[Rfam]
RNA sequence: GUUGCACCCGGCCUCGCGGUCGGGUGAGGAUUGAAAC
Dot-bracket structure: ....(((((((((....)))))))))...........